[Rfam]
RNA sequence: CUGUCAUCGAGAAAGGUGGAGGGACUGGCCCUGAGAAACCUUGGCAACCGUCAUUGCAAUAUGAUUGGUGCCAAUUCCAUCCCGGAUUACUGGCCGGGAGAGAUGAUGG
Numbered sequence: 001c002u003g004u005c006a007u008c009g010a011g012a013a014a015g016g017u018g019g020a021g022g023g024a025c026u027g028g029c030c031c032u033g034a035g036a037a038a039c040c041u042u043g044g045c046a047a048c049c050g051u052c053a054u055u056g057c058a059a060u061a062u063g064a065u066u067g068g069u070g071c072c073a074a075u076u077c078c079a080u081c082c083c084g085g086a087u088u089a090c091u092g093g094c095c096g097g098g099a100g101a102g103a104u105g106a107u108g109g
Stems, first nucleotide, its partner, number of pairs: 001109008013042005021031003026079003043072004048068002050065004076101001081098005

A member of the RNA family "SAM riboswitch aptamer (S box leader)" from Chlorobium phaeobacteroides, 109 nucleotides long. The family's consensus secondary structure is taken from published work. Taxonomically the source falls in Chlorobium phaeobacteroides (Bacteria, Chlorobiota, Chlorobiia, Chlorobium). The sequence is in the family's curated seed alignment.